c-di-GMP-I riboswitch aptamer: an 84-nucleotide RNA from Anaeromonas frigoriresistens. The source organism's lineage runs through Bacteria, Bacillati, Bacillota, Tissierellia and Anaeromonas. The family's consensus secondary structure is taken from published work.
RNA sequence: AAUAAUGAUUGGCAAACUUAUUGAAAGAUAAGGACGCAAAGCUCGGGAAUCUAAAGAGAAAUCUAUGAUAGUCCGGCCGCAUAU
Numbered sequence: 001a002a003u004a005a006u007g008a009u010u011g012g013c014a015a016a017c018u019u020a021u022u023g024a025a026a027g028a029u030a031a032g033g034a035c036g037c038a039a040a041g042c043u044c045g046g047g048a049a050u051c052u053a054a055a056g057a058g059a060a061a062u063c064u065a066u067g068a069u070a071g072u073c074c075g076g077c078c079g080c081a082u083a084u
Stems, first nucleotide, its partner, number of pairs: 012037002017032006041077003046074003049069003056063002